[Rfam]
RNA sequence: GAUUUAUAAAGAAGUGGCGAGAGACAGGCUCCGAGACCCACUGGCAACCCUCCCGAGAGGAGAAGGUGCCAAUUCCUGGCCUAGCAGAAUAAUUUGCGGGCAAAUAUAAAUU
Dot-bracket structure: ((((((((....(((((...(((.[[[[)))......)))))((((.((((((.....))))..))))))...(]]]]((((...............))))..)))))))))